[Rfam]
RNA sequence: CCUCGCUAAGCCUCUUCACAAUGCUCAAAUCGUGCGAGGC
Numbered sequence: 001c002c003u004c005g006c007u008a009a010g011c012c013u014c015u016u017c018a019c020a021a022u023g024c025u026c027a028a029a030u031c032g033u034g035c036g037a038g039g040c
Base pairs, nucleotide, nucleotide: 001039002038003037004036005035006034009025010024011023